Record summary:
The record is a 99-nucleotide RNA sequence from Saimiri boliviensis, which matches "Small nucleolar RNA U83B" in Rfam. The organism belongs to Saimiri boliviensis, within Eukaryota. Pairs were carried over by alignment from the consensus structure. It scores 46 bits against the family's covariance model. Rfam describes the family as follows. U83B belongs to the C/D family of snoRNAs. U83B like U83A has no documented RNA target and they share the same host gene with the C/D box snoRNA U43 (RPL3). Rfam 15.1 lists 966 matches to the family in 652 species. It is annotated as a C/D-box small nucleolar RNA. Gene Ontology terms of the family: RNA processing and nucleolus.

[Rfam]
RNA sequence: UGAAUUUUGGGAUGAGGUCCUGAAAUGUGUGCUGGGCACAGAGCCUGAAUCGGAUUGUGGAAACAUGAAUUUAUUUUAUUUUUACUUUUUAUUUAUUCA
Numbered sequence: 001u002g003a004a005u006u007u008u009g010g011g012a013u014g015a016g017g018u019c020c021u022g023a024a025a026u027g028u029g030u031g032c033u034g035g036g037c038a039c040a041g042a043g044c045c046u047g048a049a050u051c052g053g054a055u056u057g058u059g060g061a062a063a064c065a066u067g068a069a070u071u072u073a074u075u076u077u078a079u080u081u082u083u084a085c086u087u088u089u090u091a092u093u094u095a096u097u098c099a
Base pairs, nucleotide, nucleotide: 001099002098003097004096005095